[Rfam]
RNA sequence: GGCACGUUCUUUGCUGGUCAAGUAGGCAAUGGCCCGGCCAACGGCGGUCGGGCCACAUCAGACAAUGGCGUCUU
Dot-bracket structure: ................................(((((((......)))))))......................
This 74-nucleotide sequence from Janthinobacterium agaricidamnosum belongs to the Rfam family "narK RNA". Taxonomically the source falls in Janthinobacterium agaricidamnosum (Bacteria, Pseudomonadati, Pseudomonadota, Betaproteobacteria). A search with the family's covariance model found it, with a score of 48 bits. It is annotated as a cis-regulatory element.